This 130-nucleotide RNA from Tripterygium wilfordii belongs to the Rfam family "Small nucleolar RNA snoR77". The source organism's lineage runs through Eukaryota, Mesangiospermae, rosids, Celastrales and Tripterygium. Its family is annotated with nucleolus and RNA processing in the Gene Ontology.
RNA sequence: AGGCAGCCUUUUUGUGGUCAAUUUCUGGCAAAAGAGGUGUUGAACUGCUCAUAGAUUGAAUUUGCUUUGGCUCUUCAGGCUUGCUGAGAGAUUGAUUCUUUGAAGCUGGUCUAGUAAGCCUAAGUACAUU
Numbered sequence: 001a002g003g004c005a006g007c008c009u010u011u012u013u014g015u016g017g018u019c020a021a022u023u024u025c026u027g028g029c030a031a032a033a034g035a036g037g038u039g040u041u042g043a044a045c046u047g048c049u050c051a052u053a054g055a056u057u058g059a060a061u062u063u064g065c066u067u068u069g070g071c072u073c074u075u076c077a078g079g080c081u082u083g084c085u086g087a088g089a090g091a092u093u094g095a096u097u098c099u100u101u102g103a104a105g106c107u108g109g110u111c112u113a114g115u116a117a118g119c120c121u122a123a124g125u126a127c128a129u130u
Stems, first nucleotide, its partner, number of pairs: 002041004007037002009034007017026001065124003070119003077112005083106003088098003